Lysine riboswitch aptamer: a 177-nucleotide sequence from Bacillus sp. 165. The match comes from Rfam's covariance-model search (117 bits). The base pairs follow the family's consensus structure, which is taken from published work.
RNA sequence: AGGUGAGGUAGAGGUUGCGAAGCUUAUUAGUAGAUUGAAGGAGAGUCAGAGAACUCAGAGAGGUCAAUUGAAAGGAAGUGUCGCCGAAGCGCUGUAAUUCUCUGCUUACAGCAGCUGGGACUGCAUCGAACAGGUGCAGGACUGUCAUAGUAAUUGCUAUGAUGAACUAUCCUUUUU
Number, nucleotide and partner (000 for none) at each position: 001a000002g000003g000004u000005g000006a000007g171008g170009u169010a168011g167012a000013g000014g000015u000016u000017g084018c083019g082020a081021a000022g079023c078024u077025u076026a000027u000028u000029a000030g000031u000032a000033g069034a068035u067036u066037g065038a064039a000040g000041g000042a000043g000044a000045g000046u000047c000048a000049g000050a000051g000052a000053a000054c000055u000056c000057a000058g000059a000060g000061a000062g000063g000064u038065c037066a036067a035068u034069u033070g000071a000072a000073a000074g000075g000076a025077a024078g023079u022080g000081u020082c019083g018084c017085c000086g000087a000088a116089g115090c114091g112092c111093u110094g109095u108096a107097a106098u000099u000100c000101u000102c000103u000104g000105c000106u097107u096108a095109c094110a093111g092112c091113a000114g090115c089116u088117g143118g142119g000120a000121c139122u138123g137124c136125a135126u134127c133128g000129a000130a000131c000132a000133g127134g126135u125136g124137c123138a122139g121140g000141a000142c118143u117144g000145u162146c161147a160148u159149a158150g157151u156152a000153a000154u000155u000156g151157c150158u149159a148160u147161g146162a145163u000164g000165a000166a000167c011168u010169a009170u008171c007172c000173u000174u000175u000176u000177u000
NCBI's taxonomy places the organism under Bacteria, Bacillota, Bacilli, Bacillaceae, Bacillus.